[Rfam]
RNA sequence: GUAAAUAUAGUUUAAUUAAAACAUUAGACUGUGAAUCUAACUAUAGAAGCUUACCACUUCUUAUUUACC
Numbered sequence: 001g002u003a004a005a006u007a008u009a010g011u012u013u014a015a016u017u018a019a020a021a022c023a024u025u026a027g028a029c030u031g032u033g034a035a036u037c038u039a040a041c042u043a044u045a046g047a048a049g050c051u052u053a054c055c056a057c058u059u060c061u062u063a064u065u066u067a068c069c
Stems, first nucleotide, its partner, number of pairs: 001068007010022004024040005045061005

The family of this 69-nucleotide RNA is "tRNA". The base pairs follow the family's consensus structure, which is taken from published work. It is annotated as a transfer RNA.